[Rfam]
RNA sequence: AACUUUAUUUAUUUGGCGUAGCUUAAACUAAGAAGUGAAGGCGUAGCGAAAGCAAAAUAUCUGGUUAUAAUUUAAUAGCCUGUAGUCAAAUGAAUAAUACCCGAAACCGUGUGAUCUAGUUAUGAGCAGGUUGAAGCUCAUGUAACAAUGAGUGAAGGACCGAACCCGUGUAUGUUGCAAAAUACUGGGAUGACUUGUGACUAGGAGUGAAAGGCUAAUCAAACACGGUAAUAGCUGGUU
Numbered sequence: 001a002a003c004u005u006u007a008u009u010u011a012u013u014u015g016g017c018g019u020a021g022c023u024u025a026a027a028c029u030a031a032g033a034a035g036u037g038a039a040g041g042c043g044u045a046g047c048g049a050a051a052g053c054a055a056a057a058u059a060u061c062u063g064g065u066u067a068u069a070a071u072u073u074a075a076u077a078g079c080c081u082g083u084a085g086u087c088a089a090a091u092g093a094a095u096a097a098u099a100c101c102c103g104a105a106a107c108c109g110u111g112u113g114a115u116c117u118a119g120u121u122a123u124g125a126g127c128a129g130g131u132u133g134a135a136g137c138u139c140a141u142g143u144a145a146c147a148a149u150g151a152g153u154g155a156a157g158g159a160c161c162g163a164a165c166c167c168g169u170g171u172a173u174g175u176u177g178c179a180a181a182a183u184a185c186u187g188g189g190a191u192g193a194c195u196u197g198u199g200a201c202u203a204g205g206a207g208u209g210a211a212a213g214g215c216u217a218a219u220c221a222a223a224c225a226c227g228g229u230a231a232u233a234g235c236u237g238g239u240u
Stems, first nucleotide, its partner, number of pairs: 005097013021042004027036003046053002063080005100238002103235001107228006116204011127192001129161004136153006165189003170185004206216003
RNA: Bacterial large subunit ribosomal RNA, nucleotides 531 to 770
Organism: uncultured bacterium HF0070_02E07